[Rfam]
The family of this 171-nucleotide sequence from Lentibacillus kapialis is "Group II catalytic intron D1-D4-3".

Nucleotides: 171
Base pairs, nucleotide, nucleotide: 001016002015003014004013005012006011030169032167036163040158041157042156043155044154045153046149047148048147049146050145062144063143064142065141066140071136072135073134075132078130079129080128081127082126084112085111086110087109090105091104092103093102
Number, partner (000 for none) and nucleotide at each position: 001016u002015c003014c004013a005012c006011u007000g008000c009000g010000a011006g012005g013004u014003g015002g016001a017000a018000u019000c020000g021000g022000a023000a024000g025000g026000a027000a028000g029000u030169c031000g032167g033000c034000g035000g036163c037000a038000a039000a040158c041157u042156c043155u044154u045153g046149g047148g048147c049146c050145g051000a052000g053000g054000a055000a056000u057000a058000c059000g060000a061000a062144u063143c064142a065141c066140a067000u068000c069000a070000g071136g072135c073134a074000u075132g076000a077000u078130u079129g080128g081127g082126a083000c084112g085111g086110a087109u088000g089000a090105g091104u092103c093102u094000g095000c096000u097000a098000a099000a100000c101000a102093a103092g104091a105090u106000g107000a108000a109087a110086u111085c112084c113000a114000a115000u116000a117000c118000u119000a120000c121000u122000c123000g124000a125000a126082u127081c128080c129079c130078a131000u132075u133000a134073u135072g136071u137000a138000a139000a140066u141065g142064u143063g144062g145050c146049g147048g148047c149046u150000a151000u152000a153045u154044g155043a156042g157041a158040g159000g160000a161000a162000a163036g164000a165000g166000g167032u168000a169030g170000c171000a
NCBI's taxonomy places the organism under Bacteria, Bacillota, Bacilli, Bacillaceae, Lentibacillus. Rfam 15.1 lists 4,274 matches to the family in 1,585 species.